Shown here is a 209-nucleotide RNA from Polaromonas sp. CG9_12, a member of the family "Manganese Mn2+ riboswitch aptamer (yybP-ykoY)". It scores 87 bits against the family's covariance model. On this family, see Argaman et al., Curr Biol 2001: "Novel small RNA-encoding genes in the intergenic regions of Escherichia coli". The base pairs follow the family's consensus structure. The organism belongs to Polaromonas, within Bacteria. This RNA was originally discovered in E. coli during a large scale screen and was named SraF. The family was later found to exist upstream of related families of protein genes in many bacteria, including the the yybP and ykoK genes in B. subtilis.
RNA sequence: CCCGCUGUCAUUGGGGAGUAGCCGCCCUUCUUUACUGAAAGGGGUUUGCGUCAACAGACUUGUCUGGCCUUGCUAAAAAAGGCCGACAUGGCGCAAACAGCAGUUAGCCUGGCGAGACCUUUGACUGCACAGCCUCCAGAACUUGUAAAAAGCUUCGGGCCGGGGAUGUCGUGCAGUCAUUGGUUUUUUUGAUCCGGCCUGAGCUGUUU
Numbered sequence: 001c002c003c004g005c006u007g008u009c010a011u012u013g014g015g016g017a018g019u020a021g022c023c024g025c026c027c028u029u030c031u032u033u034a035c036u037g038a039a040a041g042g043g044g045u046u047u048g049c050g051u052c053a054a055c056a057g058a059c060u061u062g063u064c065u066g067g068c069c070u071u072g073c074u075a076a077a078a079a080a081g082g083c084c085g086a087c088a089u090g091g092c093g094c095a096a097a098c099a100g101c102a103g104u105u106a107g108c109c110u111g112g113c114g115a116g117a118c119c120u121u122u123g124a125c126u127g128c129a130c131a132g133c134c135u136c137c138a139g140a141a142c143u144u145g146u147a148a149a150a151a152g153c154u155u156c157g158g159g160c161c162g163g164g165g166a167u168g169u170c171g172u173g174c175a176g177u178c179a180u181u182g183g184u185u186u187u188u189u190u191g192a193u194c195c196g197g198c199c200u201g202a203g204c205u206g207u208u209u
Stems, first nucleotide, its partner, number of pairs: 026042003044098010061088004099208007
Dot-bracket structure: .........................(((...........))).((((((((((.......((((....................))))))))))))))(((((((................................................................................................))))))).